[Rfam]
RNA: TPP riboswitch aptamer (THI element)
Organism: Alkalicoccobacillus porphyridii
RNA sequence: UAUGAUGACUAGGGGUGCCGCAGAGGCUGAGAAUUAGGAGAAAUCCUUUUACCCUUGUACCUGAUCUGGAUGAUACCAGCGUAGGAAAGUCGACUAAUAAAGCG
Numbered sequence: 001u002a003u004g005a006u007g008a009c010u011a012g013g014g015g016u017g018c019c020g021c022a023g024a025g026g027c028u029g030a031g032a033a034u035u036a037g038g039a040g041a042a043a044u045c046c047u048u049u050u051a052c053c054c055u056u057g058u059a060c061c062u063g064a065u066c067u068g069g070a071u072g073a074u075a076c077c078a079g080c081g082u083a084g085g086a087a088a089g090u091c092g093a094c095u096a097a098u099a100a101a102g103c104g
Base pairs, nucleotide, nucleotide: 006092007091008090009089010088011055012054013053014052017027018026019025037045060085061084062083063082066079067078068077069076